[Rfam]
Overview
Small nucleolar RNA SNORA20: a 130-nucleotide sequence from Galemys pyrenaicus. Gene Ontology terms of the family: RNA processing and nucleolus. The organism belongs to Galemys, within Eukaryota. About the family: ACA20 is a member of the H/ACA class of snoRNA that guide the sites of modification of uridines to pseudouridines. Clan: SNORA20 clan.
RNA sequence: GUUCCCAUUUAUUUCCUGCUAUAGUCUUUCAGUGAUCUGAGCAGUUAUAUGCAUGGGAUAAAAUAACAUCGUGACAGAGUAAACUGAGAUGAAGUAGCCAUUUUAUCUCACCUUCAUGGCUUGUUGGUAC
Number, nucleotide and partner (000 for none) at each position: 001g000002u000003u058004c057005c056006c055007a054008u053009u000010u000011a000012u000013u000014u000015c000016c044017u043018g042019c041020u040021a000022u000023a036024g000025u035026c034027u000028u000029u000030c000031a000032g000033u000034g026035a025036u023037c000038u000039g000040a020041g019042c018043a017044g016045u000046u000047a000048u000049a000050u000051g000052c000053a008054u007055g006056g005057g004058a003059u000060a000061a000062a000063a000064u000065a000066a000067c000068a000069u000070c123071g122072u000073g120074a000075c118076a117077g000078a000079g115080u000081a113082a000083a000084c000085u000086g109087a108088g107089a106090u105091g104092a103093a102094g101095u100096a000097g000098c000099c000100a095101u094102u093103u092104u091105a090106u089107c088108u087109c086110a000111c000112c000113u081114u000115c079116a000117u076118g075119g000120c073121u000122u071123g070124u000125u000126g000127g000128u000129a000130c000